[Rfam]
RNA sequence: ACCAAGUGCCGGGCCCCUCUGGCGAGAGUAUCAGCGGCGCUCUCGUGAUGUCGGCACUACCCG
Numbered sequence: 001a002c003c004a005a006g007u008g009c010c011g012g013g014c015c016c017c018u019c020u021g022g023c024g025a026g027a028g029u030a031u032c033a034g035c036g037g038c039g040c041u042c043u044c045g046u047g048a049u050g051u052c053g054g055c056a057c058u059a060c061c062c063g
Stems, first nucleotide, its partner, number of pairs: 006057007022046008
This 63-nucleotide sequence from Rhizobium sp. RU36D belongs to the Rfam family "terC RNA". Rfam 15.1 lists 1,112 matches to the family in 772 species. The family's consensus secondary structure is taken from published work. A search with the family's covariance model found it, with a score of 60 bits.